Rfam assigns this 71-nucleotide sequence from Halopseudomonas xinjiangensis to the family "Pseudomonas sRNA P9". A search with the family's covariance model found it, with a score of 68 bits.

RNA sequence: AUGAUUAUGACCGCCAUUCGAGCUUUGGCGGGUUAGCCUACGUCCCCAAACCCGCCUGGAAGGCGGGUUUU
Numbered sequence: 001a002u003g004a005u006u007a008u009g010a011c012c013g014c015c016a017u018u019c020g021a022g023c024u025u026u027g028g029c030g031g032g033u034u035a036g037c038c039u040a041c042g043u044c045c046c047c048a049a050a051c052c053c054g055c056c057u058g059g060a061a062g063g064c065g066g067g068u069u070u071u
Stems, first nucleotide, its partner, number of pairs: 011031006048070009
Dot-bracket structure: ..........((((((.........))))))................(((((((((.....))))))))).
This small RNA (sRNA) was computationally identified in the genome of the opportunistic pathogen Pseudomonas aeruginosa and its expression verified by northern blot analysis. P9 appears to be conserved in several Pseudomonas species in addition to Bordetella spp. In both Pseudomonas and Bordetella spp P9 appears to be located upstream of a predicted threonine dehydratase gene.
The family's consensus secondary structure was predicted with RNAalifold.